[Rfam]
RNA sequence: UGCGGUGUCUUCGGACGCAGCGGUUUAUCGAUCUCUUCCUGGAAUGCUUGUUGAUGGGAAUGAUUGCCAAAUGAAGUGAAAGACAAAACAGGAAUCGAUCGAUAAACCUCUGCAUCCGGUGUUCACGCA
Numbered sequence: 001u002g003c004g005g006u007g008u009c010u011u012c013g014g015a016c017g018c019a020g021c022g023g024u025u026u027a028u029c030g031a032u033c034u035c036u037u038c039c040u041g042g043a044a045u046g047c048u049u050g051u052u053g054a055u056g057g058g059a060a061u062g063a064u065u066g067c068c069a070a071a072u073g074a075a076g077u078g079a080a081a082g083a084c085a086a087a088a089c090a091g092g093a094a095u096c097g098a099u100c101g102a103u104a105a106a107c108c109u110c111u112g113c114a115u116c117c118g119g120u121g122u123u124c125a126c127g128c129a
Base pairs, nucleotide, nucleotide: 013117014116015115018112019111020110022108023107024106025105027103028102029101030100031099032098033097036094037093038092039091040090041089

The record is a 129-nucleotide RNA sequence from Tetracentron sinense, which matches "MIR162_1 microRNA precursor family" in Rfam. NCBI's taxonomy places the organism under Eukaryota, Streptophytina, Magnoliopsida, Trochodendrales, Tetracentron. The match comes from Rfam's covariance-model search (77 bits). Rfam links the family to the GO terms miRNA-mediated post-transcriptional gene silencing and RISC complex. On this family, see Reinhart et al., Genes Dev 2002: "MicroRNAs in plants".